[Rfam]
RNA sequence: UUAACUUAAAUUUGUAUGGAGUUAGAAUGUAUGCCUACGAUGCUGUUCCAACUGCAUACAAAUUUGACUUA
Number, nucleotide and partner (000 for none) at each position: 001u000002u000003a000004a000005c000006u000007u000008a065009a064010a063011u062012u061013u060014g059015u058016a057017u000018g055019g000020a053021g052022u051023u050024a000025g048026a047027a046028u045029g044030u000031a000032u000033g000034c039035c000036u000037a000038c000039g034040a000041u000042g000043c000044u029045g028046u027047u026048c025049c000050a023051a022052c021053u020054g000055c018056a000057u016058a015059c014060a013061a012062a011063u010064u009065u008066g000067a000068c000069u000070u000071a000
RNA: mir-2807 microRNA precursor family